RNA: Group II catalytic intron D1-D4-4
RNA sequence: CAGCAGGUUGCAAGGUACCUGUCAGGGUAAUUGCCAGUUCACCCUGAAGUCUGACCGGCAGUUUUUUUUUUAGAAAGACUGAAGCCCGGUGACAAAGGCUCUGUAGAGUCGAGACGAGGUGCAGGCCGUAGCAUAU
Numbered sequence: 001c002a003g004c005a006g007g008u009u010g011c012a013a014g015g016u017a018c019c020u021g022u023c024a025g026g027g028u029a030a031u032u033g034c035c036a037g038u039u040c041a042c043c044c045u046g047a048a049g050u051c052u053g054a055c056c057g058g059c060a061g062u063u064u065u066u067u068u069u070u071u072a073g074a075a076a077g078a079c080u081g082a083a084g085c086c087c088g089g090u091g092a093c094a095a096a097g098g099c100u101c102u103g104u105a106g107a108g109u110c111g112a113g114a115c116g117a118g119g120u121g122c123a124g125g126c127c128g129u130a131g132c133a134u135a136u
Base pairs, nucleotide, nucleotide: 023046024045025044026043027042054090055089056088057087058086059081060080061079062078063077064076068072097110098109099108100107101106114129115128116127